[Rfam]
RNA: Small nucleolar RNA SNORD11B
RNA sequence: UGAUGCCAGUGAUGAUCCCUGAUUGUUGCUGUCCUGGUGUUCAGACAUGAGGGUGCACAGUCACUCCUUCAUCUGAGCCAUCU
Numbered sequence: 001u002g003a004u005g006c007c008a009g010u011g012a013u014g015a016u017c018c019c020u021g022a023u024u025g026u027u028g029c030u031g032u033c034c035u036g037g038u039g040u041u042c043a044g045a046c047a048u049g050a051g052g053g054u055g056c057a058c059a060g061u062c063a064c065u066c067c068u069u070c071a072u073c074u075g076a077g078c079c080a081u082c083u
Stems, first nucleotide, its partner, number of pairs: 002082004007077001